[Rfam]
RNA sequence: AUAAAUCGAAGAGGCGCAACCAACACAAGUAAACUGAUGGAGCUUGGCCAGGCCGGGAAGUCAGCGGAACAGGGCGGUUGCCGAAGCGUCUAGUUUGGCCCGACUAGGUAGCUGGGGCGUGGGUGAAUAACUCACGGACUGUCGCAGGACAAUAACAGCCUGCGGUGCGCUAUCGACAAA
Numbered sequence: 001a002u003a004a005a006u007c008g009a010a011g012a013g014g015c016g017c018a019a020c021c022a023a024c025a026c027a028a029g030u031a032a033a034c035u036g037a038u039g040g041a042g043c044u045u046g047g048c049c050a051g052g053c054c055g056g057g058a059a060g061u062c063a064g065c066g067g068a069a070c071a072g073g074g075c076g077g078u079u080g081c082c083g084a085a086g087c088g089u090c091u092a093g094u095u096u097g098g099c100c101c102g103a104c105u106a107g108g109u110a111g112c113u114g115g116g117g118c119g120u121g122g123g124u125g126a127a128u129a130a131c132u133c134a135c136g137g138a139c140u141g142u143c144g145c146a147g148g149a150c151a152a153u154a155a156c157a158g159c160c161u162g163c164g165g166u167g168c169g170c171u172a173u174c175g176a177c178a179a180a
Base pairs, nucleotide, nucleotide: 006175008173010171011170016081017080018079019078020077021076024073034064035063036062037061038060085113086112087111088109089108090107091106092105093104094103095102114140115139118136119135120134121133122132123131124130142165143164144163145162146161147160148159
RNA: Lysine riboswitch aptamer
Organism: Limosilactobacillus frumenti